MIR162_2 microRNA precursor family: a 138-nucleotide RNA sequence from Zizania palustris. Lineage of the source: Eukaryota > Tracheophyta > Spermatophyta > Magnoliopsida > Zizania. The base pairs follow the family's consensus structure, which was predicted with RNAalifold. The match comes from Rfam's covariance-model search (119 bits).
[Rfam]
RNA sequence: GUCUGGGCGCUGUGGUUUAUCGAUCCCUUCCCUGCCUUGUGCUGAUUCAGGAUAGGUUGAUUUCUUGAGAGGGUUUUCUUUGUUGCAACCAAAACAAGAACAACGCUGGAAUCGAUCGAUAAACCUCUGCAUCCAGUU
Numbered sequence: 001g002u003c004u005g006g007g008c009g010c011u012g013u014g015g016u017u018u019a020u021c022g023a024u025c026c027c028u029u030c031c032c033u034g035c036c037u038u039g040u041g042c043u044g045a046u047u048c049a050g051g052a053u054a055g056g057u058u059g060a061u062u063u064c065u066u067g068a069g070a071g072g073g074u075u076u077u078c079u080u081u082g083u084u085g086c087a088a089c090c091a092a093a094a095c096a097a098g099a100a101c102a103a104c105g106c107u108g109g110a111a112u113c114g115a116u117c118g119a120u121a122a123a124c125c126u127c128u129g130c131a132u133c134c135a136g137u138u
Stems, first nucleotide, its partner, number of pairs: 003136005009130002012127001014125012028111004034106002037103003